[Rfam]
RNA: Small nucleolar RNA SNORD87
RNA sequence: UCUGGCAUAAUGAUGAGACUUUUUGCCGUUUACCCAUCUGACUCUUUUUUGAUGUGUAUCUUGAGAUCUGAAAUGCCAGU
Numbered sequence: 001u002c003u004g005g006c007a008u009a010a011u012g013a014u015g016a017g018a019c020u021u022u023u024u025g026c027c028g029u030u031u032a033c034c035c036a037u038c039u040g041a042c043u044c045u046u047u048u049u050u051g052a053u054g055u056g057u058a059u060c061u062u063g064a065g066a067u068c069u070g071a072a073a074u075g076c077c078a079g080u
Stems, first nucleotide, its partner, number of pairs: 002079006